[Rfam]
RNA sequence: AGUAUACGAUGUCAGAAAUGGUUCCUGGCGCGCUCUUCGAAGUACCUGAGAUGCCGGAUACACCGCCUGGCCGUAUGCU
Numbered sequence: 001a002g003u004a005u006a007c008g009a010u011g012u013c014a015g016a017a018a019u020g021g022u023u024c025c026u027g028g029c030g031c032g033c034u035c036u037u038c039g040a041a042g043u044a045c046c047u048g049a050g051a052u053g054c055c056g057g058a059u060a061c062a063c064c065g066c067c068u069g070g071c072c073g074u075a076u077g078c079u
Base pairs, nucleotide, nucleotide: 001079002078003077004076005075006074007073008072011029012028013027014026015025019065020064021063022062031048032043033042034041053071054070055069056068057067

This 79-nucleotide RNA sequence belongs to the Rfam family "skipping-rope RNA". The family's RNA type in Rfam is small RNA.